[Rfam]
Rfam assigns this 75-nucleotide RNA from Streptomyces marincola to the family "ASpks TB sRNA". It is annotated as an antisense RNA. The organism belongs to Streptomyces, within Bacteria. The family's consensus secondary structure is taken from published work.

RNA sequence: CUUGACCGAGCCGAGCCACAGCGGCUGCUCGGGCGAGCGGCCCUGGCCGUAGGCGGCGAGAAGUGCCUGGCCCUC
Numbered sequence: 001c002u003u004g005a006c007c008g009a010g011c012c013g014a015g016c017c018a019c020a021g022c023g024g025c026u027g028c029u030c031g032g033g034c035g036a037g038c039g040g041c042c043c044u045g046g047c048c049g050u051a052g053g054c055g056g057c058g059a060g061a062a063g064u065g066c067c068u069g070g071c072c073c074u075c
Base pairs, nucleotide, nucleotide: 014026015025016024017023031071038065039064043060044059047056048055049054